[Rfam]
RNA sequence: AACCACAUUAUCGAUGAAUGGAUUCACCUGUGAGAUGAUGUGGUUGUUCCAUUAGGAUGAGGAUGUGACAUCCUAUUAAUUUCGUGCGAUGGCUGGUAAUAGGAUGCUAUGUCCUCGUCCUAGGUGAAACAUCCACAUCAUCUUGCGGGUGAAUUCAUUCAUCGAUAGUGUGGUU
Numbered sequence: 001a002a003c004c005a006c007a008u009u010a011u012c013g014a015u016g017a018a019u020g021g022a023u024u025c026a027c028c029u030g031u032g033a034g035a036u037g038a039u040g041u042g043g044u045u046g047u048u049c050c051a052u053u054a055g056g057a058u059g060a061g062g063a064u065g066u067g068a069c070a071u072c073c074u075a076u077u078a079a080u081u082u083c084g085u086g087c088g089a090u091g092g093c094u095g096g097u098a099a100u101a102g103g104a105u106g107c108u109a110u111g112u113c114c115u116c117g118u119c120c121u122a123g124g125u126g127a128a129a130c131a132u133c134c135a136c137a138u139c140a141u142c143u144u145g146c147g148g149g150u151g152a153a154u155u156c157a158u159u160c161a162u163c164g165a166u167a168g169u170g171u172g173g174u175u
Stems, first nucleotide, its partner, number of pairs: 001175007009167007017159003021155008030146004035141005041135003045131004051125002053122002056119002062113003069106010085096001